[Rfam]
RNA sequence: AUUUAAUAAAUGCUUCGAGAUUCUCCGGCUAAGGGAAACUAUGCCGGUUGAUCCUGAGUUUUGACUCACAGGGUAACGAUGGAAACGCCGUUGCCUCCCAUGACGCAGGAUAGUAUCCUGCCAGGAAAGAGGCCUGCAAAUUCGCUGC
Numbered sequence: 001a002u003u004u005a006a007u008a009a010a011u012g013c014u015u016c017g018a019g020a021u022u023c024u025c026c027g028g029c030u031a032a033g034g035g036a037a038a039c040u041a042u043g044c045c046g047g048u049u050g051a052u053c054c055u056g057a058g059u060u061u062u063g064a065c066u067c068a069c070a071g072g073g074u075a076a077c078g079a080u081g082g083a084a085a086c087g088c089c090g091u092u093g094c095c096u097c098c099c100a101u102g103a104c105g106c107a108g109g110a111u112a113g114u115a116u117c118c119u120g121c122c123a124g125g126a127a128a129g130a131g132g133c134c135u136g137c138a139a140a141u142u143c144g145c146u147g148c
Base pairs, nucleotide, nucleotide: 012133013132014131015130016129019053020052021051022050025047026046027045028044029043033040034039055068056067057066058065059064071096072095073094074093075092076091077090078089080087081086097125098124